[Rfam]
RNA sequence: GUUGCUUCACAAUGGUGAAUACUCCUUUAUUUUCAAAUAGGAGUUUUCAAGUUUCCCGAAGCAUAAAUUAAACCAAAAAAACCAGUCUUAAACAGCGUAGUGUAAUUUUUUUAAACUACACUAUGCUACCUGUCUACUGGUACAUUU
Numbered sequence: 001g002u003u004g005c006u007u008c009a010c011a012a013u014g015g016u017g018a019a020u021a022c023u024c025c026u027u028u029a030u031u032u033u034c035a036a037a038u039a040g041g042a043g044u045u046u047u048c049a050a051g052u053u054u055c056c057c058g059a060a061g062c063a064u065a066a067a068u069u070a071a072a073c074c075a076a077a078a079a080a081a082c083c084a085g086u087c088u089u090a091a092a093c094a095g096c097g098u099a100g101u102g103u104a105a106u107u108u109u110u111u112u113a114a115a116c117u118a119c120a121c122u123a124u125g126c127u128a129c130c131u132g133u134c135u136a137c138u139g140g141u142a143c144a145u146u147u
Stems, first nucleotide, its partner, number of pairs: 003063006016049004021044005081141006094127003098123005

Rfam assigns this 147-nucleotide RNA from Trifolium subterraneum to the family "small nucleolar RNA snoR137". The family's RNA type in Rfam is H/ACA-box small nucleolar RNA. The base pairs follow the family's consensus structure, which was predicted with RNAalifold. The family has 4 seed sequences and 808 matches in Rfam 15.1. The literature on the family includes a 2009 paper in Nucleic Acids Res by Chen and Wu, "Mining small RNA sequencing data: a new approach to identify small nucleolar RNAs in Arabidopsis".